[Rfam]
A member of the RNA family "Guanidine-I riboswitch aptamer" from Paenibacillus sabuli, 232 nucleotides long. This family represents a conserved RNA structure found upstream of the ykkC and yxkD genes in Bacillus subtilis and related genes in other bacteria. The function of this family is unclear although it has been suggested that it may function to switch on efflux pumps and detoxification systems in response to harmful environmental molecules. The pairing is the family consensus, mapped onto this sequence. It scores 70 bits against the family's covariance model. The organism belongs to Paenibacillus, within Bacteria.
RNA sequence: UAUUACGUCCUCUAGGGUUCCGCGCCAUGUCGGCGGCCUGGUCCGAGAGAGGACGCGCAGCCCUCGCGCGAUUCGCGCGUAUAGAUCGCGUCUAUACUCGAAUAUAUAGAAUUUAUUAGUUUCACGCUAAUAAACGGUCUCUAUAUUCUCGGAACGAAGCUUGCUGCUCCAUAAAAGACGGCUUGCCCGUUUCGCCUUGGCUGUGACACGGCGGGACAAAAGCCCGGGAGAU
Numbered sequence: 001u002a003u004u005a006c007g008u009c010c011u012c013u014a015g016g017g018u019u020c021c022g023c024g025c026c027a028u029g030u031c032g033g034c035g036g037c038c039u040g041g042u043c044c045g046a047g048a049g050a051g052g053a054c055g056c057g058c059a060g061c062c063c064u065c066g067c068g069c070g071a072u073u074c075g076c077g078c079g080u081a082u083a084g085a086u087c088g089c090g091u092c093u094a095u096a097c098u099c100g101a102a103u104a105u106a107u108a109g110a111a112u113u114u115a116u117u118a119g120u121u122u123c124a125c126g127c128u129a130a131u132a133a134a135c136g137g138u139c140u141c142u143a144u145a146u147u148c149u150c151g152g153a154a155c156g157a158a159g160c161u162u163g164c165u166g167c168u169c170c171a172u173a174a175a176a177g178a179c180g181g182c183u184u185g186c187c188c189g190u191u192u193c194g195c196c197u198u199g200g201c202u203g204u205g206a207c208a209c210g211g212c213g214g215g216a217c218a219a220a221a222g223c224c225c226g227g228g229a230g231a232u
Base pairs, nucleotide, nucleotide: 007054008053009052010051011050012049015044016043020041021040022038023035024034025033026032056205057204058203059202060201061200062199207227209230213225214224215223